This 86-nucleotide RNA from Hathewaya proteolytica belongs to the Rfam family "Fluoride riboswitch aptamer (crcB RNA motif)". A reference for the family is Baker et al. (2012), "Widespread genetic switches and toxicity resistance proteins for fluoride", Science. Rfam 15.1 lists 2,293 matches to the family in 1,982 species. The family's consensus secondary structure is taken from published work.
[Rfam]
Nucleotides: 086
Base pairs, nucleotide, nucleotide: 010026011025012024013023016077017076018075019074020073021072058067059066060065
Number, partner (000 for none) and nucleotide at each position: 001000a002000a003000a004000a005000g006000a007000u008000a009000a010026g011025g012024g013023a014000a015000u016077g017076a018075a019074g020073u021072u022000c023013u024012c025011c026010c027000u028000a029000g030000u031000a032000u033000a034000a035000u036000a037000c038000u039000g040000u041000u042000g043000u044000a045000u046000u047000a048000u049000a050000u051000u052000u053000a054000a055000a056000c057000c058067g059066c060065a061000u062000u063000u064000a065060u066059g067058c068000u069000g070000a071000u072021g073020a074019c075018u076017u077016c078000u079000g080000c081000u082000a083000u084000u085000a086000u